Record summary:
Shown here is a 61-nucleotide RNA sequence from Paenibacillus pini, a member of the family "Fluoride riboswitch aptamer (crcB RNA motif)". The family's consensus secondary structure is taken from published work.
[Rfam]
RNA sequence: AUAAAGAAAGGCGAUGGAGUUCGCCAUAACUGCCUUCGUGGCUAAUGACUCCUACCGGGGA
Numbered sequence: 001a002u003a004a005a006g007a008a009a010g011g012c013g014a015u016g017g018a019g020u021u022c023g024c025c026a027u028a029a030c031u032g033c034c035u036u037c038g039u040g041g042c043u044a045a046u047g048a049c050u051c052c053u054a055c056c057g058g059g060g061a
Stems, first nucleotide, its partner, number of pairs: 010025004016052006032042003